[Rfam]
RNA sequence: CACACUACUUACUGUAAGUUGCUCUGGAUAAGAGCAUCUGCUAAAUCACUGAAA
Numbered sequence: 001c002a003c004a005c006u007a008c009u010u011a012c013u014g015u016a017a018g019u020u021g022c023u024c025u026g027g028a029u030a031a032g033a034g035c036a037u038c039u040g041c042u043a044a045a046u047c048a049c050u051g052a053a054a
Base pairs, nucleotide, nucleotide: 013043014041015040016039020036021035022034023033024032025031
Source information
Shown here is a 54-nucleotide RNA from Oncorhynchus kisutch, a member of the family "UnaL2 LINE 3' element". Lineage of the source: Eukaryota > Bilateria > Actinopteri > Protacanthopterygii > Oncorhynchus. By type it is a cis-regulatory element. The match comes from Rfam's covariance-model search (62 bits). The base pairs follow the family's consensus structure, which is taken from published work.